[Rfam]
RNA sequence: UGAUGUAAGUGUCAAAAGUAUAAAUUGCGUUUGUGCUUGCACAAAUAAGCAAUUUAUACUUAUUGACACGCCGAACAACGAGAACGGAAUAAAAUGGUGUGAACACACCAUUUUAUGGGAGUUCGAGGUGUUCGAGGAUUGCGAAAUUGCGUAGCAAUGAAGCAAUCCGGGUACGUCA
Numbered sequence: 001u002g003a004u005g006u007a008a009g010u011g012u013c014a015a016a017a018g019u020a021u022a023a024a025u026u027g028c029g030u031u032u033g034u035g036c037u038u039g040c041a042c043a044a045a046u047a048a049g050c051a052a053u054u055u056a057u058a059c060u061u062a063u064u065g066a067c068a069c070g071c072c073g074a075a076c077a078a079c080g081a082g083a084a085c086g087g088a089a090u091a092a093a094a095u096g097g098u099g100u101g102a103a104c105a106c107a108c109c110a111u112u113u114u115a116u117g118g119g120a121g122u123u124c125g126a127g128g129u130g131u132u133c134g135a136g137g138a139u140u141g142c143g144a145a146a147u148u149g150c151g152u153a154g155c156a157a158u159g160a161a162g163c164a165a166u167c168c169g170g171g172u173a174c175g176u177c178a
Stems, first nucleotide, its partner, number of pairs: 001178007011067004017060012029046001031044005073133004078129002082124004089116012136168007146158004

The family of this 178-nucleotide RNA sequence is "Clostridiales-1 RNA". The family's RNA type in Rfam is small RNA.